The family of this 79-nucleotide RNA from Capitella teleta is "mir-1 microRNA precursor family".

[Rfam]
RNA sequence: GCGAUUGUGACAUACUUCCUUACAACGCCAUAUUUCCCAUAUUAUUGGUAUGGAAUGUAAAGAAGUAUGUAGCAUUCCC
Numbered sequence: 001g002c003g004a005u006u007g008u009g010a011c012a013u014a015c016u017u018c019c020u021u022a023c024a025a026c027g028c029c030a031u032a033u034u035u036c037c038c039a040u041a042u043u044a045u046u047g048g049u050a051u052g053g054a055a056u057g058u059a060a061a062g063a064a065g066u067a068u069g070u071a072g073c074a075u076u077c078c079c
Stems, first nucleotide, its partner, number of pairs: 007073002010070009020060005028053005
About the family: This family represents the microRNA (miRNA) mir-1 family. miRNAs are transcribed as ~70nt precursors (modelled here) and subsequently processed by the Dicer enzyme to give a ~22nt product. On this family, see Lee and Ambros, Science 2001: "An extensive class of small RNAs in Caenorhabditis elegans".